Rfam assigns this 133-nucleotide RNA sequence from Balaenoptera musculus to the family "Small nucleolar RNA SNORA31". A search with the family's covariance model found it, with a score of 42 bits. Rfam describes the family as follows. ACA31 (SNORA31) belongs to the H/ACA class of snoRNAs which are thought to guide the sites of modification of uridines to pseudouridines. ACA31 is predicted to guide the pseudouridylation of U3713 in 28S rRNA and U218 in 18S rRNA. This family includes the mouse homologue snoMBI-161.
[Rfam]
RNA sequence: AUACAUCUAUUUUUGACAGAGCUGGAGCAGUUAACAUCUGCUCCUAAGGUUUCUACUACAGAUGCAAGAAAAAGUGUUUCAUACUUUCUGUUUGUUUAACUGUGGCAGCCAGAUUGAAUGAGGAAAUAAAGUA
Numbered sequence: 001a002u003a004c005a006u007c008u009a010u011u012u013u014u015g016a017c018a019g020a021g022c023u024g025g026a027g028c029a030g031u032u033a034a035c036a037u038c039u040g041c042u043c044c045u046a047a048g049g050u051u052u053c054u055a056c057u058a059c060a061g062a063u064g065c066a067a068g069a070a071a072a073a074g075u076g077u078u079u080c081a082u083a084c085u086u087u088c089u090g091u092u093u094g095u096u097u098a099a100c101u102g103u104g105g106c107a108g109c110c111a112g113a114u115u116g117a118a119u120g121a122g123g124a125a126a127u128a129a130a131g132u133a
Stems, first nucleotide, its partner, number of pairs: 002066001004064005014055002018052003022048001025043006078125003082121001084116001087113004092108005

The family has 5 seed sequences and 2,094 matches in Rfam 15.1. By type it is an H/ACA-box small nucleolar RNA. A reference for the family is Huttenhofer et al. (2001), "RNomics: an experimental approach that identifies 201 candidates for novel, small, non-messenger RNAs in mouse", EMBO J.